[Rfam]
RNA: L2-Alphaproteobacteria ribosomal protein leader
RNA sequence: GGGCACCUACGGGGGCCUAUAAACAUGGUGGGAUCAAAUCCCACCCUACAUAGGUGGGGCGAAAUCCCUGCCGUUUGCUAAACGGAAGACAGAAA
Numbered sequence: 001g002g003g004c005a006c007c008u009a010c011g012g013g014g015g016c017c018u019a020u021a022a023a024c025a026u027g028g029u030g031g032g033a034u035c036a037a038a039u040c041c042c043a044c045c046c047u048a049c050a051u052a053g054g055u056g057g058g059g060c061g062a063a064a065u066c067c068c069u070g071c072c073g074u075u076u077g078c079u080a081a082a083c084g085g086a087a088g089a090c091a092g093a094a095a
Stems, first nucleotide, its partner, number of pairs: 001018004006014003027072006